RNA sequence: UUAUAGGAUGAUUUAGCUAUUAAACUAUUUUGUCCCUCUCUAACUCAGAACAAAUUUUUCUUUGACAGAGAGGGAUAAAACAGUUCAAUAGCUAAAACUUCCUGUAAC
Numbered sequence: 001u002u003a004u005a006g007g008a009u010g011a012u013u014u015a016g017c018u019a020u021u022a023a024a025c026u027a028u029u030u031u032g033u034c035c036c037u038c039u040c041u042a043a044c045u046c047a048g049a050a051c052a053a054a055u056u057u058u059u060c061u062u063u064g065a066c067a068g069a070g071a072g073g074g075a076u077a078a079a080a081c082a083g084u085u086c087a088a089u090a091g092c093u094a095a096a097a098c099u100u101c102c103u104g105u106a107a108c
Base pairs, nucleotide, nucleotide: 001107002106003105004104005103006102012096013095014094015093016092017091018090019089020088021087023085024084025083026082028080029069030068031067032066033065034064049059050058052056